Shown here is an 86-nucleotide RNA sequence from Neisseria arctica, a member of the family "sRNA-Xcc1". The family has 74 seed sequences and 421 matches in Rfam 15.1. By type it is a small RNA. Lineage of the source: Bacteria > Betaproteobacteria > Neisseriales > Neisseriaceae > Neisseria. The match comes from Rfam's covariance-model search (56 bits).
RNA sequence: GCCGAGAGGGCGAGGAAUAAAAUACCCCACAGGGGAAAUAACUCCACCCUUCUUUUACAGGGCUACGAACCUCUUGGCCGCCCAUU
Dot-bracket structure: (((((((((..(.(.(........(((....)))....)...).).((((........)))).......)))))))))........